[Rfam]
RNA sequence: UAGAAGAAUCUAUUAAGCUCGGGAGGGAUAGCGCCAUGGAUGAUCUUCAAGCUUUGUUUUUCAAUUCUGAUCUUCAGUAGCGCUAUCCAUCCUGAGUUUCAUCGGUUCUUCUU
Numbered sequence: 001u002a003g004a005a006g007a008a009u010c011u012a013u014u015a016a017g018c019u020c021g022g023g024a025g026g027g028a029u030a031g032c033g034c035c036a037u038g039g040a041u042g043a044u045c046u047u048c049a050a051g052c053u054u055u056g057u058u059u060u061u062c063a064a065u066u067c068u069g070a071u072c073u074u075c076a077g078u079a080g081c082g083c084u085a086u087c088c089a090u091c092c093u094g095a096g097u098u099u100c101a102u103c104g105g106u107u108c109u110u111c112u113u
Stems, first nucleotide, its partner, number of pairs: 010104001016098009026088009
Record summary: The family of this 113-nucleotide RNA sequence from Hibiscus syriacus is "MIR390 microRNA precursor family". The source organism's lineage runs through Eukaryota, eudicotyledons, Pentapetalae, malvids and Hibiscus. Pairs were carried over by alignment from the consensus structure, which was predicted with WAR.